[Rfam]
RNA sequence: GAAAAAUGAAGAUACUCUCUUUGCUGCCUAUUAUUAGUGAAGACCUCAGAUCCAACUCUGAUUUCACUCUGGUU
Numbered sequence: 001g002a003a004a005a006a007u008g009a010a011g012a013u014a015c016u017c018u019c020u021u022u023g024c025u026g027c028c029u030a031u032u033a034u035u036a037g038u039g040a041a042g043a044c045c046u047c048a049g050a051u052c053c054a055a056c057u058c059u060g061a062u063u064u065c066a067c068u069c070u071g072g073u074u
Stems, first nucleotide, its partner, number of pairs: 001065004

Small nucleolar RNA SNORD19: a 74-nucleotide RNA sequence from Rhinopomastus cyanomelas. Gene Ontology terms of the family: RNA processing and nucleolus. The match comes from Rfam's covariance-model search (38 bits). The base pairs follow the family's consensus structure. Lineage of the source: Eukaryota > Opisthokonta > Eumetazoa > Gnathostomata > Rhinopomastus. By type it is a C/D-box small nucleolar RNA. Its Rfam clan is "SNORD19 clan". A reference for the family is Huttenhofer et al. (2001), "RNomics: an experimental approach that identifies 201 candidates for novel, small, non-messenger RNAs in mouse", EMBO J.